[Rfam]
Rfam assigns this 112-nucleotide RNA from Cebus imitator to the family "Mitochondrial DNA control region secondary structure A". The literature on the family includes a 2008 paper in Mol Biol Evol by Pereira et al., "Evidence for variable selective pressures at a large secondary structure of the human mitochondrial DNA control region". The family's consensus secondary structure is taken from published work.
RNA sequence: UUCUUUCUUAGCACAUACUUUGAAUAUCAUGUCAGUACUAAUCAACAGCACUAUUACAUUAGUGCUUUUAUGUACUUUGUGCAUUACUGCUAGUCCCCAUGAAUAAUAUAUA
Number, nucleotide and partner (000 for none) at each position: 001u000002u000003c000004u000005u103006u102007c101008u000009u099010a000011g097012c000013a000014c089015a088016u000017a000018c000019u000020u034021u000022g032023a000024a030025u029026a000027u000028c000029a025030u024031g000032u022033c000034a020035g065036u064037a000038c062039u061040a060041a059042u000043c000044a000045a000046c000047a000048g000049c000050a000051c000052u000053a000054u000055u000056a000057c000058a000059u041060u040061a039062g038063u000064g036065c035066u000067u000068u000069u000070a084071u083072g082073u081074a080075c000076u000077u000078u000079g000080u074081g073082c072083a071084u070085u000086a000087c000088u015089g014090c000091u000092a000093g000094u000095c000096c000097c011098c000099a009100u000101g007102a006103a005104u000105a000106a000107u000108a000109u000110a000111u000112a000